[Rfam]
RNA sequence: AAAAAGGGCUUCUGCUGUUGAUAGCACAGGAGAAGUGGGGUCACCAUUUCUCUUGCGGAAUCGCCAUCAAGAGAUUUCGGAAGCACAAUUUUUAAACCAGGGGCUGCUGGUGAUCGUUCGUCCUGGCGUCCCG
Numbered sequence: 001a002a003a004a005a006g007g008g009c010u011u012c013u014g015c016u017g018u019u020g021a022u023a024g025c026a027c028a029g030g031a032g033a034a035g036u037g038g039g040g041u042c043a044c045c046a047u048u049u050c051u052c053u054u055g056c057g058g059a060a061u062c063g064c065c066a067u068c069a070a071g072a073g074a075u076u077u078c079g080g081a082a083g084c085a086c087a088a089u090u091u092u093u094a095a096a097c098c099a100g101g102g103g104c105u106g107c108u109g110g111u112g113a114u115c116g117u118u119c120g121u122c123c124u125g126g127c128g129u130c131c132c133g
Stems, first nucleotide, its partner, number of pairs: 008084005013026005027055012056079007101131004106127005112122003
RNA: U11 spliceosomal RNA